[Rfam]
RNA: c-di-GMP-I riboswitch aptamer
Nucleotides: 091
Base pairs, nucleotide, nucleotide: 012037013036017032018031019030020029021028022027040085041084042083043082045081046080047079048076049075050074055070056069057068
Number, partner (000 for none) and nucleotide at each position: 001000u002000c003000u004000a005000g006000u007000a008000a009000a010000u011000g012037g013036c014000a015000a016000a017032u018031c019030u020029a021028u022027u023000g024000a025000a026000a027022a028021a029020u030019a031018g032017a033000g034000a035000c036013g037012c038000a039000a040085a041084g042083u043082u044000u045081c046080g047079g048076g049075u050074c051000u052000a053000a054000g055070g056069g057068g058000u059000a060000u061000u062000g063000g064000c065000a066000u067000u068057u069056c070055c071000u072000a073000u074050g075049a076048u077000u078000g079047c080046u081045g082043a083042a084041c085040u086000g087000u088000c089000u090000a091000g